[Rfam]
RNA sequence: AAGCAAACCGGUUCUAUCGCUGUUCUGCCUUGGCAGGAAAGAGGAAAGUCCGGGCAACAUAGAGCAACACGCUUCCUAACGGGAAGGAUACCUUCGGGUAGACAGAAAGUGCCACAGAAAAUAUACCGCCUUGCGCUUGUCGAAGGGUAAGGGUGAAAACGUGAGGUAAGAGCUCACGGUCUUGUAUGGUGACAUGCAUUACGGUAAACCUCGUGUGUUGAAAGACCAAAUAGGUUGCGAAAUUCGAAAGCUGCUCGUUUUCUCCCGACUUGUCGGGGUUCGCAAUGGGUAGGUUGAUACAGCUUGUGUGCGAAUACAAGCGUAGAUAAAUGAUAGAAAUCCACUUGUUUAACAGGAGGGUACAGAACCCGGCUUACAAGGUUUGCUUCUUU
Numbered sequence: 001a002a003g004c005a006a007a008c009c010g011g012u013u014c015u016a017u018c019g020c021u022g023u024u025c026u027g028c029c030u031u032g033g034c035a036g037g038a039a040a041g042a043g044g045a046a047a048g049u050c051c052g053g054g055c056a057a058c059a060u061a062g063a064g065c066a067a068c069a070c071g072c073u074u075c076c077u078a079a080c081g082g083g084a085a086g087g088a089u090a091c092c093u094u095c096g097g098g099u100a101g102a103c104a105g106a107a108a109g110u111g112c113c114a115c116a117g118a119a120a121a122u123a124u125a126c127c128g129c130c131u132u133g134c135g136c137u138u139g140u141c142g143a144a145g146g147g148u149a150a151g152g153g154u155g156a157a158a159a160c161g162u163g164a165g166g167u168a169a170g171a172g173c174u175c176a177c178g179g180u181c182u183u184g185u186a187u188g189g190u191g192a193c194a195u196g197c198a199u200u201a202c203g204g205u206a207a208a209c210c211u212c213g214u215g216u217g218u219u220g221a222a223a224g225a226c227c228a229a230a231u232a233g234g235u236u237g238c239g240a241a242a243u244u245c246g247a248a249a250g251c252u253g254c255u256c257g258u259u260u261u262c263u264c265c266c267g268a269c270u271u272g273u274c275g276g277g278g279u280u281c282g283c284a285a286u287g288g289g290u291a292g293g294u295u296g297a298u299a300c301a302g303c304u305u306g307u308g309u310g311c312g313a314a315u316a317c318a319a320g321c322g323u324a325g326a327u328a329a330a331u332g333a334u335a336g337a338a339a340u341c342c343a344c345u346u347g348u349u350u351a352a353c354a355g356g357a358g359g360g361u362a363c364a365g366a367a368c369c370c371g372g373c374u375u376a377c378a379a380g381g382u383u384u385g386c387u388u389c390u391u392u
Base pairs, nucleotide, nucleotide: 001388002387003386004385005384006383007382008381009380011377012338013337014336015335016334017333018332020041021040023038024037025036026035027034028033046375047374048373050372051371052370053369054368055220056219057218058217062271063270064269067216068215069214070213071212072086073085074084075083076082087103089100090099091098104211105210109209110208111205112204113203126152127151128148129147130146131145132144134142135141160178161177162176163175164174165173183198184197185196186195187194188193224295225294226293227292234286235285236284237283238282239281264277265276266275302321303320304319305318306317307316308315309314

Rfam assigns this 392-nucleotide RNA sequence from Sphingobacterium wenxiniae to the family "Bacterial RNase P class A". It scores 248 bits against the family's covariance model. The organism belongs to Sphingobacterium, within Bacteria. The base pairs follow the family's consensus structure, which is taken from published work. It is annotated as a ribozyme. From the family's description: Ribonuclease P (RNase P) is a ubiquitous endoribonuclease, found in archaea, bacteria and eukarya as well as chloroplasts and mitochondria. Its best characterised activity is the generation of mature 5'-ends of tRNAs by cleaving the 5'-leader elements of precursor-tRNAs.